[Rfam]
RNA sequence: AAAGAGCCUAUUUCAACUAAAGGCAGGCCAUGUCCUGUGAUAACGUUGAACUGACUCACAUCCUGUGAG
Numbered sequence: 001a002a003a004g005a006g007c008c009u010a011u012u013u014c015a016a017c018u019a020a021a022g023g024c025a026g027g028c029c030a031u032g033u034c035c036u037g038u039g040a041u042a043a044c045g046u047u048g049a050a051c052u053g054a055c056u057c058a059c060a061u062c063c064u065g066u067g068a069g
Stems, first nucleotide, its partner, number of pairs: 012050006027041001029039003055069005
RNA: Bacillaceae-1 RNA
Organism: Pueribacillus theae